[Rfam]
RNA: U4atac minor spliceosomal RNA
Organism: Dicentrarchus labrax
RNA sequence: GCUUUCCUUGUCAUGGGGUGGUUUGGGAAACUCAAUGAACGUUUAGUGAGAGUUCCCCUGCUGACACCAUAGUCAACACAUACGCACCGCCUGAGCCCCCACGCUCAGACUCUGGUGCAAUUUUUGGAAAC
Numbered sequence: 001g002c003u004u005u006c007c008u009u010g011u012c013a014u015g016g017g018g019u020g021g022u023u024u025g026g027g028a029a030a031c032u033c034a035a036u037g038a039a040c041g042u043u044u045a046g047u048g049a050g051a052g053u054u055c056c057c058c059u060g061c062u063g064a065c066a067c068c069a070u071a072g073u074c075a076a077c078a079c080a081u082a083c084g085c086a087c088c089g090c091c092u093g094a095g096c097c098c099c100c101a102c103g104c105u106c107a108g109a110c111u112c113u114g115g116u117g118c119a120a121u122u123u124u125u126g127g128a129a130a131c
Stems, first nucleotide, its partner, number of pairs: 006018004021061002026056003030053004039047002084118005089112001091108006